[Rfam]
Nucleotides: 094
Base pairs, nucleotide, nucleotide: 001094002093003092004091006089007088044048
Number, partner (000 for none) and nucleotide at each position: 001094a002093u003092c004091a005000c006089c007088a008000a009000g010000u011000g012000a013000u014000g015000a016000a017000g018000u019000g020000u021000u022000g023000a024000a025000a026000u027000a028000u029000c030000u031000u032000a033000g034000g035000a036000c037000a038000c039000c040000a041000u042000u043000g044048g045000a046000c047000a048044u049000a050000a051000c052000u053000g054000u055000u056000u057000a058000a059000a060000g061000u062000u063000g064000u065000g066000a067000a068000u069000g070000a071000a072000a073000a074000u075000g076000c077000c078000a079000u080000u081000u082000u083000u084000u085000u086000g087000a088007u089006g090000a091004u092003g093002a094001u
A member of the RNA family "Small nucleolar RNA snoR31/Z110/Z27" from Camellia sinensis, 94 nucleotides long.
The match comes from Rfam's covariance-model search (46 bits).
A reference for the family is Barneche et al. (2001), "Identification of 66 box C/D snoRNAs in Arabidopsis thaliana: extensive gene duplications generated multiple isoforms predicting new ribosomal RNA 2'-O-methylation sites", J Mol Biol.
Rfam describes the family as follows. This family contains several related snoRNAs including R31, Z27 and Z110.
Gene Ontology terms of the family: RNA processing and nucleolus.
Pairs were carried over by alignment from the consensus structure, which was predicted with PFOLD.
Rfam classes the family as a C/D-box small nucleolar RNA.
NCBI's taxonomy places the organism under Eukaryota, Viridiplantae, Euphyllophyta, Ericales, Camellia sinensis.